A member of the RNA family "ZMP/ZTP riboswitch aptamer (pfl RNA motif)" from Viridibacillus arenosi, 78 nucleotides long.
[Rfam]
RNA sequence: CAAUCUAUAUGUAACUGGCGUAGCAUGGAUUACCAUGAGGGAGCAUAUAGAAAUUCGUCGUACGUCUGGGCAGGUAUU
Numbered sequence: 001c002a003a004u005c006u007a008u009a010u011g012u013a014a015c016u017g018g019c020g021u022a023g024c025a026u027g028g029a030u031u032a033c034c035a036u037g038a039g040g041g042a043g044c045a046u047a048u049a050g051a052a053a054u055u056c057g058u059c060g061u062a063c064g065u066c067u068g069g070g071c072a073g074g075u076a077u078u
Stems, first nucleotide, its partner, number of pairs: 004051009015040002017066005025036004055073001057071003